Notes
The family of this 131-nucleotide sequence from Trinickia dinghuensis is "Burkholderia sRNA 2". Pairs were carried over by alignment from the consensus structure, which was predicted with RNAfold. Rfam's curators write: Upregulated in response to iron ion depletion. For this family Rfam cites "Identification of novel small RNAs in Burkholderia cenocepacia KC-01 expressed under iron limitation and oxidative stress conditions" (Ghosh et al., Microbiology, 2017).
RNA sequence: AUGAGUUCCCGUUCACUUCGUUCUGUCCGCUCGAGCGCCGUCGAUUCGGUCGAUGUUUCGUCCGUCAGGCGCCGCGCGAUGCUCGAAACCGAGCCGCUUGCUCCAUCGCAACAGGAGCGGCGGCUUUUUUG
Numbered sequence: 001a002u003g004a005g006u007u008c009c010c011g012u013u014c015a016c017u018u019c020g021u022u023c024u025g026u027c028c029g030c031u032c033g034a035g036c037g038c039c040g041u042c043g044a045u046u047c048g049g050u051c052g053a054u055g056u057u058u059c060g061u062c063c064g065u066c067a068g069g070c071g072c073c074g075c076g077c078g079a080u081g082c083u084c085g086a087a088a089c090c091g092a093g094c095c096g097c098u099u100g101c102u103c104c105a106u107c108g109c110a111a112c113a114g115g116a117g118c119g120g121c122g123g124c125u126u127u128u129u130u131g
Base pairs, nucleotide, nucleotide: 008029010025011024032078033077035075036074039071040070041069042068047064048063049062080091081090083088092125093124094123095122096121097120099119100118101117102116103115104114